Shown here is an 83-nucleotide RNA from Ruminococcaceae bacterium BL-4, a member of the family "tRNA". The family's RNA type in Rfam is transfer RNA. The match comes from Rfam's covariance-model search (53 bits). The family's consensus secondary structure is taken from published work. Transfer RNA (tRNA) molecules are approximately 80 nucleotides in length.
[Rfam]
RNA sequence: GGAGAGGUAUUCUAAUGGUAAGGAGCCACAUUGGAAAUGUGGUGUGCCGCAAGGCAUUGAGCGUUCGAGUCGCUUCCUCUCCG
Numbered sequence: 001g002g003a004g005a006g007g008u009a010u011u012c013u014a015a016u017g018g019u020a021a022g023g024a025g026c027c028a029c030a031u032u033g034g035a036a037a038u039g040u041g042g043u044g045u046g047c048c049g050c051a052a053g054g055c056a057u058u059g060a061g062c063g064u065u066c067g068a069g070u071c072g073c074u075u076c077c078u079c080u081c082c083g
Stems, first nucleotide, its partner, number of pairs: 001082007010024004026042005059075005